[Rfam]
RNA sequence: GACUCCAGGGAUAUAAGGGCAUCGCCUCCUCCUGUUGAAGGACACUCCCUCUUGAUGGAGAAUGGGAACUCCCUCCCUCCUGCAGCCGCCUGUGUGCAGCCAUCCUGGUAGGACAGGGUGGACGCUGUAGGCUGUUGCAGCUGCCGUCACCCCUGAAAGAAAGUAACCCAGAGC
Numbered sequence: 001g002a003c004u005c006c007a008g009g010g011a012u013a014u015a016a017g018g019g020c021a022u023c024g025c026c027u028c029c030u031c032c033u034g035u036u037g038a039a040g041g042a043c044a045c046u047c048c049c050u051c052u053u054g055a056u057g058g059a060g061a062a063u064g065g066g067a068a069c070u071c072c073c074u075c076c077c078u079c080c081u082g083c084a085g086c087c088g089c090c091u092g093u094g095u096g097c098a099g100c101c102a103u104c105c106u107g108g109u110a111g112g113a114c115a116g117g118g119u120g121g122a123c124g125c126u127g128u129a130g131g132c133u134g135u136u137g138c139a140g141c142u143g144c145c146g147u148c149a150c151c152c153c154u155g156a157a158a159g160a161a162a163g164u165a166a167c168c169c170a171g172a173g174c
Stems, first nucleotide, its partner, number of pairs: 003173003008169003014160001016050004025041003029037001052157002058079001060076001062074001064073003085150001086146001088144002095139005101134001105120001
A member of the RNA family "FGF-1 internal ribosome entry site (IRES)" from Hipposideros armiger, 174 nucleotides long. The base pairs follow the family's consensus structure, which is taken from published work. A search with the family's covariance model found it, with a score of 92 bits. Its family is annotated with ribosome binding in the Gene Ontology. This family represents the FGF-1 internal ribosome entry site (IRES). The FGF-1 IRES is present in the 5' UTR of the mRNA and allows cap-independent translation. It is thought that FGF-1 IRES activity is strictly controlled and highly tissue specific.